This 129-nucleotide RNA sequence from Electrophorus electricus belongs to the Rfam family "Small nucleolar RNA SNORA63". Gene Ontology terms of the family: nucleolus and RNA processing. The family's RNA type in Rfam is H/ACA-box small nucleolar RNA.
[Rfam]
RNA sequence: UAGCAGGAUAAGUUACGGAUCAGCUGCGUUCGUGCUGUUCUGUCGUUCCCCCUGCACAAAUUGACUUGUUUCUUACUAUCCCUGUCUGCCUGCGCCCAUCAGCUUGCAGGGACGCUUGGUUUCACACAU
Numbered sequence: 001u002a003g004c005a006g007g008a009u010a011a012g013u014u015a016c017g018g019a020u021c022a023g024c025u026g027c028g029u030u031c032g033u034g035c036u037g038u039u040c041u042g043u044c045g046u047u048c049c050c051c052c053u054g055c056a057c058a059a060a061u062u063g064a065c066u067u068g069u070u071u072c073u074u075a076c077u078a079u080c081c082c083u084g085u086c087u088g089c090c091u092g093c094g095c096c097c098a099u100c101a102g103c104u105u106g107c108a109g110g111g112a113c114g115c116u117u118g119g120u121u122u123c124a125c126a127c128a129u
Stems, first nucleotide, its partner, number of pairs: 003055005015043005021037004081110004088103002